RNA sequence: GAUUAGAGCCUCUGGCUCAGCCUGGUCUUUGAUUAUAAAUUAUACAGCAACAUGUAUUGCACAUGGAGUGGGGCGGCUGUGGCCUUACCCUGCCUCGUGCGGAAUCGACAUCAAGAGAUUUCAGAAGCACAAUUUUUGCUCCUGGGGCUGCUGGUAAUCGUUGGUUCCGGCGCCCUG
Numbered sequence: 001g002a003u004u005a006g007a008g009c010c011u012c013u014g015g016c017u018c019a020g021c022c023u024g025g026u027c028u029u030u031g032a033u034u035a036u037a038a039a040u041u042a043u044a045c046a047g048c049a050a051c052a053u054g055u056a057u058u059g060c061a062c063a064u065g066g067a068g069u070g071g072g073g074c075g076g077c078u079g080u081g082g083c084c085u086u087a088c089c090c091u092g093c094c095u096c097g098u099g100c101g102g103a104a105u106c107g108a109c110a111u112c113a114a115g116a117g118a119u120u121u122c123a124g125a126a127g128c129a130c131a132a133u134u135u136u137u138g139c140u141c142c143u144g145g146g147g148c149u150g151c152u153g154g155u156a157a158u159c160g161u162u163g164g165u166u167c168c169g170g171c172g173c174c175c176u177g
Stems, first nucleotide, its partner, number of pairs: 001057001062099005068093006101122006145175004150171005156166004
U11 spliceosomal RNA: a 177-nucleotide RNA sequence from Platysternon megacephalum. The base pairs follow the family's consensus structure, which is taken from published work. A search with the family's covariance model found it, with a score of 74 bits.